[Rfam]
RNA: Manganese Mn2+ riboswitch aptamer (yybP-ykoY)
RNA sequence: CCCCGUUGGGGAGUAGCCAUCCUCACUCCCGAAGGCUUCCGGCCUUCAAACCAGAGGAAUCCACGUCAACAGACUUGAAGCUUCGGCUUCAUGGCGUGGAUGGCCUGCUAUCGAGGCAUUCGAUGGCUCGCCCGGCGAGACCUUUGGCCAUGACGUGCUC
Numbered sequence: 001c002c003c004c005g006u007u008g009g010g011g012a013g014u015a016g017c018c019a020u021c022c023u024c025a026c027u028c029c030c031g032a033a034g035g036c037u038u039c040c041g042g043c044c045u046u047c048a049a050a051c052c053a054g055a056g057g058a059a060u061c062c063a064c065g066u067c068a069a070c071a072g073a074c075u076u077g078a079a080g081c082u083u084c085g086g087c088u089u090c091a092u093g094g095c096g097u098g099g100a101u102g103g104c105c106u107g108c109u110a111u112c113g114a115g116g117c118a119u120u121c122g123a124u125g126g127c128u129c130g131c132c133c134g135g136c137g138a139g140a141c142c143u144u145u146g147g148c149c150a151u152g153a154c155g156u157g158c159u160c
Base pairs, nucleotide, nucleotide: 021057022056023055059101060100061099062098063097064096065095066094067093068092076091077090078089079088080087
Dot-bracket structure: ....................(((...............................))).((((((((((.......(((((......)))))))))))))))...........................................................